[Rfam]
Nucleotides: 587
Base pairs, nucleotide, nucleotide: 001583002582003581004580005579006578007577008576010575011574012573014570022404023403024402025401027400028399029396030395031394032393033392035201036200037199038198042193043192045190046189047188048187051154052153053152054151055150056149057148058147059146060145062143063142065140066139068137078136079135080134081133082132085119086118087117094113095112096111097110098109099108100107101106158181159180160179162178163177164176165175166174204216205215206214207213217239218238219237220236221235222234240385242342243341248300249299250298251297252296253295254280255279257275258274259273260272261271262270281290282289305328306327307326308325311322312321313320330339331338332337353379354378355377356376357375358374359373361372362371413454414453415452417451418448419447420446421445422444423443424442428438429437465540466538467537468536469535470532471529472528473527474526475525478503479502481498482497483496484495485494486493505519506518507517508516509515546564547563548562549561550559551558552557
Number, partner (000 for none) and nucleotide at each position: 001583c002582c003581c004580g005579c006578a007577u008576c009000a010575a011574g012573a013000c014570g015000a016000a017000a018000a019000g020000a021000c022404c023403c024402c025401a026000u027400g028399g029396a030395g031394c032393u033392u034000u035201a036200c037199u038198a039000c040000a041000g042193u043192u044000u045190c046189g047188u048187a049000u050000u051154g052153g053152a054151a055150c056149u057148u058147g059146g060145u061000c062143u063142a064000a065140c066139a067000u068137g069000u070000g071000u072000a073000g074000g075000a076000u077000a078136g079135g080134u081133g082132g083000g084000a085119g086118a087117c088000u089000u090000u091000g092000a093000a094113g095112c096111g097110a098109g099108g100107a101106c102000g103000c104000u105000a106101g107100u108099u109098c110097u111096c112095g113094u114000g115000g116000a117087g118086u119085c120000a121000u122000c123000c124000u125000u126000g127000a128000a129000a130000u131000a132082c133081c134080a135079c136078c137068c138000u139066u140065g141000g142063u143062a144000u145060a146059u147058u148057g149056a150055g151054u152053u153052u154051c155000u156000a157000a158181c159180a160179u161000g162178c163177c164176a165175u166174c167000a168000u169000c170000a171000u172000c173000a174166g175165g176164u177163g178162g179160g180159u181158g182000g183000a184000c185000a186000g187048u188047g189046c190045g191000u192043g193042a194000c195000g196000g197000g198038u199037a200036g201035u202000u203000u204216g205215a206214c207213u208000g209000g210000g211000g212000c213207g214206g215205u216204c217239g218238c219237c220236u221235c222234c223000u224000a225000a226000a227000g228000a229000g230000u231000a232000a233000c234222g235221g236220a237219g238218g239217c240385g241000u242342u243341c244000a245000a246000a247000g248300g249299u250298a251297c252296a253295c254280u255279c256000a257275g258274u259273a260272c261271g262270g263000u264000c265000a266000g267000a268000a269000a270262c271261c272260g273259u274258a275257u276000g277000u278000a279255g280254a281290g282289c283000g284000c285000a286000a287000a288000g289282g290281u291000a292000g293000a294000a295253g296252u297251g298250u299249g300248c301000u302000u303000g304000a305328c306327u307326g308325u309000g310000a311322g312321a313320c314000u315000u316000a317000c318000a319000a320313g321312u322311c323000g324000a325308g326307c327306a328305g329000g330339u331338g332337c333000g334000a335000a336000a337332g338331c339330a340000g341243g342242a343000c344000u345000u346000a347000g348000u349000g350000a351000u352000c353379c354378g355377g356376c357375u358374g359373u360000a361372c362371a363000u364000u365000g366000u367000g368000g369000a370000a371362u372361g373359g374358c375357a376356g377355u378354c379353g380000c381000u382000c383000a384000a385240c386000g387000g388000a389000u390000a391000a392033a393032a394031g395030u396029u397000a398000c399028c400027c401025u402024g403023g404022g405000g406000a407000u408000a409000a410000c411000a412000g413454g414453c415452u416000u417451a418448u419447c420446u421445u422444g423443c424442c425000c426000a427000a428438g429437a430000g431000a432000u433000c434000a435000c436000a437429u438428c439000g440000a441000c442424g443423g444422c445421a446420a447419g448418g449000u450000u451417u452415g453414g454413c455000a456000c457000c458000u459000c460000g461000a462000u463000g464000u465540c466538g467537g468536c469535u470532c471529a472528u473527c474526g475525c476000a477000u478503c479502c480000u481498g482497g483496a484495g485494c486493u487000g488000g489000a490000g491000u492000c493486g494485g495484u496483u497482c498481c499000a500000a501000g502479g503478g504000u505519u506518g507517g508516g509515c510000u511000g512000u513000u514000c515509g516508c517507c518506c519505a520000u521000u522000a523000a524000a525475g526474c527473g528472g529471u530000a531000c532470g533000c534000g535469a536468g537467c538466u539000g540465g541000g542000u543000u544000c545000a546564a547563a548562a549561c550559g551558u552557c553000g554000u555000g556000a557552g558551a559550c560000a561549g562548u563547u564546u565000g566000g567000u568000c569000c570014c571000u572000a573012u574011c575010u576008g577007a578006u579005g580004u581003g582002g583001g584000c585000g586000u587000u
The family of this 587-nucleotide part of an RNA from Mycoplasmopsis fermentans is "Bacterial large subunit ribosomal RNA". The organism belongs to Mycoplasmopsis fermentans, within Bacteria.